This 108-nucleotide RNA sequence from Oceanisphaera arctica belongs to the Rfam family "Alpha operon ribosome binding site". It scores 83 bits against the family's covariance model. The bacterial alpha operon ribosome binding site is surrounded by this complex pseudoknotted structure. Translation of the mRNA produces 4 ribosomal protein products, one of which (S4) acts as a translational repressor by binding to the nested pseudoknot region. The mechanism of repression is thought to involve a conformational switch in the pseudoknot region and ribosome entrapment. The organism belongs to Oceanisphaera, within Bacteria. The base pairs follow the family's consensus structure, which is taken from published work. A reference for the family is Schlax et al. (2001), "Translational repression of the Escherichia coli alpha operon mRNA: importance of an mRNA conformational switch and a ternary entrapment complex", J Biol Chem.
RNA sequence: UGGGUGUCUGUGUCAUUACGUAUCCUAGACGGGCUUUGUAAUGGCUUUAUAUAUUUUAAUUUGUAGGAGUGCAUAGUGGCCCGUAUCGCUGGCAUUAACAUUCCUGAC
Numbered sequence: 001u002g003g004g005u006g007u008c009u010g011u012g013u014c015a016u017u018a019c020g021u022a023u024c025c026u027a028g029a030c031g032g033g034c035u036u037u038g039u040a041a042u043g044g045c046u047u048u049a050u051a052u053a054u055u056u057u058a059a060u061u062u063g064u065a066g067g068a069g070u071g072c073a074u075a076g077u078g079g080c081c082c083g084u085a086u087c088g089c090u091g092g093c094a095u096u097a098a099c100a101u102u103c104c105u106g107a108c
Base pairs, nucleotide, nucleotide: 004054005053006052007051009049010048012046024092025091030083031082032081033080039106040105